Annotation:
Rfam assigns this 293-nucleotide RNA sequence from Enterobacteriaceae bacterium RIT714 to the family "Soft rot Enterobacteriaceae Rev 39 5'UTR". About the family: From bacteria cultured under starvation conditions. The base pairs follow the family's consensus structure, which was predicted with RNAfold. A reference for the family is Kwenda et al. (2016), "Discovery and profiling of small RNAs responsive to stress conditions in the plant pathogen Pectobacterium atrosepticum", BMC Genomics. Rfam links the family to the GO term cellular response to starvation. Taxonomically the source falls in Enterobacteriaceae (Bacteria, Pseudomonadota, Gammaproteobacteria, Enterobacterales).
[Rfam]
RNA sequence: UUGUGUUGAAUUUAUUAUCUGUGUUACCUCUUUAGGUAUUCCUUCGAACAAGAUGCCAAAAGAAAUCAAAAUGACAGCCCUUCUACUAGUGAUUAGCCUGGUCGUGAUUAGCGUGGUGGUGAUUAUUAUCCCACCGUGCGGGGCUGCACUUGGACGAGGAAAGGCUUAAAAAACAAGCCUUAACGAACUAAGACCCCCGCACCGAAAGGUCCGGGGGUUUUUUUAUGACUUAAAAACUAAAGCGAGGAGCAGAGAAUGACAACUAGCAUAAAAUUCUGUUUCUCCAUAUUUAU
Numbered sequence: 001u002u003g004u005g006u007u008g009a010a011u012u013u014a015u016u017a018u019c020u021g022u023g024u025u026a027c028c029u030c031u032u033u034a035g036g037u038a039u040u041c042c043u044u045c046g047a048a049c050a051a052g053a054u055g056c057c058a059a060a061a062g063a064a065a066u067c068a069a070a071a072u073g074a075c076a077g078c079c080c081u082u083c084u085a086c087u088a089g090u091g092a093u094u095a096g097c098c099u100g101g102u103c104g105u106g107a108u109u110a111g112c113g114u115g116g117u118g119g120u121g122a123u124u125a126u127u128a129u130c131c132c133a134c135c136g137u138g139c140g141g142g143g144c145u146g147c148a149c150u151u152g153g154a155c156g157a158g159g160a161a162a163g164g165c166u167u168a169a170a171a172a173a174c175a176a177g178c179c180u181u182a183a184c185g186a187a188c189u190a191a192g193a194c195c196c197c198c199g200c201a202c203c204g205a206a207a208g209g210u211c212c213g214g215g216g217g218u219u220u221u222u223u224u225a226u227g228a229c230u231u232a233a234a235a236a237c238u239a240a241a242g243c244g245a246g247g248a249g250c251a252g253a254g255a256a257u258g259a260c261a262a263c264u265a266g267c268a269u270a271a272a273a274u275u276c277u278g279u280u281u282c283u284c285c286a287u288a289u290u291u292a293u
Stems, first nucleotide, its partner, number of pairs: 002026002007021001008019001032069002035067003039063002043060002045055002079247003083244001087239002093233003096229001098227001101224001103113003115135005121130003136155002139152004158184001163180002166177002190221010201210003248280007256269003